[Rfam]
RNA sequence: AGCUGGUGUGAAGGUAGUGAAUUAUCUCCAUUGAUCACAGUUAGUUACAAUUCUACUCUUUCCCCCUUCUCACUGUUGCACUUGACCAGCCCUCC
Numbered sequence: 001a002g003c004u005g006g007u008g009u010g011a012a013g014g015u016a017g018u019g020a021a022u023u024a025u026c027u028c029c030a031u032u033g034a035u036c037a038c039a040g041u042u043a044g045u046u047a048c049a050a051u052u053c054u055a056c057u058c059u060u061u062c063c064c065c066c067u068u069c070u071c072a073c074u075g076u077u078g079c080a081c082u083u084g085a086c087c088a089g090c091c092c093u094c095c
Base pairs, nucleotide, nucleotide: 002090003089004088005087006086007085010083011082014079015078016074017073018072019071020070031055033053034052
Dot-bracket structure: .((((((..((..(((((((..........(.((.................)).)..............)))))...))..)).)))))).....
A member of the RNA family "Y RNA" from Microcebus murinus, 95 nucleotides long. It scores 46 bits against the family's covariance model. About the family: Y RNAs are components of the Ro ribonucleoprotein particle (Ro RNP), in association with Ro60 and La proteins. By type it is a non-coding RNA gene. Lineage of the source: Eukaryota > Eumetazoa > Dipnotetrapodomorpha > Theria > Microcebus.